[Rfam]
RNA sequence: CGGGAGCCGCCGCCUAAUCGCCUUAAUGGCGAGCCGGGGAUCCACUUAUGCGACUUGUUCACGACGGCGAAGGCCGCCGUAGUUAUCUCACCGAGAGCGAGCCUCGAGGUGGGCCGUGAACAAGCUGCAAUCCUCGGGGUGAAUCCGCGCUUCAGCGGUAGGGAUUUCCUUCGUCCCGAACCCGUCAGCUAACCCGGCCGGCGGCCGACGGAAGGAAAU
Numbered sequence: 001c002g003g004g005a006g007c008c009g010c011c012g013c014c015u016a017a018u019c020g021c022c023u024u025a026a027u028g029g030c031g032a033g034c035c036g037g038g039g040a041u042c043c044a045c046u047u048a049u050g051c052g053a054c055u056u057g058u059u060c061a062c063g064a065c066g067g068c069g070a071a072g073g074c075c076g077c078c079g080u081a082g083u084u085a086u087c088u089c090a091c092c093g094a095g096a097g098c099g100a101g102c103c104u105c106g107a108g109g110u111g112g113g114c115c116g117u118g119a120a121c122a123a124g125c126u127g128c129a130a131u132c133c134u135c136g137g138g139g140u141g142a143a144u145c146c147g148c149g150c151u152u153c154a155g156c157g158g159u160a161g162g163g164a165u166u167u168c169c170u171u172c173g174u175c176c177c178g179a180a181c182c183c184g185u186c187a188g189c190u191a192a193c194c195c196g197g198c199c200g201g202c203g204g205c206c207g208a209c210g211g212a213a214g215g216a217a218a219u
Stems, first nucleotide, its partner, number of pairs: 011203004018032003033198006043136001137183003145158004161177004

c-di-AMP riboswitch aptamer (ydaO/yuaA leader): a 219-nucleotide RNA sequence from Actinoplanes italicus. It scores 83 bits against the family's covariance model. The base pairs follow the family's consensus structure. The source organism's lineage runs through Bacteria, Bacillati, Actinomycetota, Micromonosporales and Actinoplanes.